[Rfam]
RNA sequence: UUCGUCCCGGGGUUCGUCCCAGAUGUGUGUUUGCAACGCUCCCGGCAAGUUUGCGUAUUGGCAAACUUGUAAUCUGUAAAUGCACUAUCUGGUACGACACCCAGGGACGU
Numbered sequence: 001u002u003c004g005u006c007c008c009g010g011g012g013u014u015c016g017u018c019c020c021a022g023a024u025g026u027g028u029g030u031u032u033g034c035a036a037c038g039c040u041c042c043c044g045g046c047a048a049g050u051u052u053g054c055g056u057a058u059u060g061g062c063a064a065a066c067u068u069g070u071a072a073u074c075u076g077u078a079a080a081u082g083c084a085c086u087a088u089c090u091g092g093u094a095c096g097a098c099a100c101c102c103a104g105g106g107a108c109g110u
Base pairs, nucleotide, nucleotide: 008104010102011101015096016095017094019092020091021090022089023088025085027083028082029081030080031079032078033077034076035075
mir-277 microRNA precursor family: a 110-nucleotide sequence from Leptidea sinapis.
Its family is annotated with RISC complex and miRNA-mediated post-transcriptional gene silencing in the Gene Ontology.
For this family Rfam cites "MicroRNAs of Bombyx mori identified by Solexa sequencing" (Liu et al., BMC Genomics, 2010).
Lineage of the source: Eukaryota > Pterygota > Ditrysia > Dismorphiinae > Leptidea.